[Rfam]
RNA sequence: UGUGUGUGUGUGUGUGUUAAUUUAAUUUGCAACAAAGCCUUGCAAACAGGUACAAAGAGUAAAUCCUCUUUUGCAACCCAGAACUCAUAGCUGAAUAUGAGAUUUUUGGUGCAUGUAAGAGGGAAUAUG
Number, nucleotide and partner (000 for none) at each position: 001u054002g053003u052004g051005u050006g000007u048008g047009u046010g000011u044012g000013u000014g039015u000016g000017u036018u035019a000020a000021u032022u000023u000024a000025a000026u031027u000028u000029g000030c000031a026032a021033c000034a000035a018036a017037g000038c000039c014040u000041u000042g000043c000044a011045a000046a009047c008048a007049g000050g005051u004052a003053c002054a001055a000056a000057g000058a000059g000060u000061a000062a000063a126064u125065c000066c123067u122068c000069u120070u119071u118072u117073g116074c000075a000076a000077c000078c000079c108080a107081g106082a105083a104084c101085u100086c099087a098088u097089a000090g000091c000092u000093g000094a000095a000096u000097a088098u087099g086100a085101g084102a000103u000104u083105u082106u081107u080108g079109g000110u000111g000112c000113a000114u000115g000116u073117a072118a071119g070120a069121g000122g067123g066124a000125a064126u063127a000128u000129g000
About this RNA: The family of this 129-nucleotide RNA from Dipodomys ordii is "Small nucleolar RNA SNORA40". Lineage of the source: Eukaryota > Euteleostomi > Eutheria > Castorimorpha > Dipodomys. The literature on the family includes a 1997 paper in J Mol Biol by Ofengand and Bakin, "Mapping to nucleotide resolution of pseudouridine residues in large subunit ribosomal RNAs from representative eukaryotes, prokaryotes, archaebacteria, mitochondria and chloroplasts". A search with the family's covariance model found it, with a score of 74 bits. Rfam classes the family as an H/ACA-box small nucleolar RNA.